Rfam assigns this 53-nucleotide RNA sequence from Tiranvirus STIP28 to the family "Glutamine-II riboswitch aptamer".
Its family is annotated with glutamine binding in the Gene Ontology.
The organism belongs to Tiranvirus STIP28, within Viruses.
It scores 52 bits against the family's covariance model.
Pairs were carried over by alignment from the consensus structure, which is taken from published work.
[Rfam]
RNA sequence: GUACGUUCAGCCUUAGGGCCGCAUGAUGCCUAACCAUGGAACGGGGGUUAGGU
Numbered sequence: 001g002u003a004c005g006u007u008c009a010g011c012c013u014u015a016g017g018g019c020c021g022c023a024u025g026a027u028g029c030c031u032a033a034c035c036a037u038g039g040a041a042c043g044g045g046g047g048u049u050a051g052g053u
Stems, first nucleotide, its partner, number of pairs: 004043005010019003028053006034046002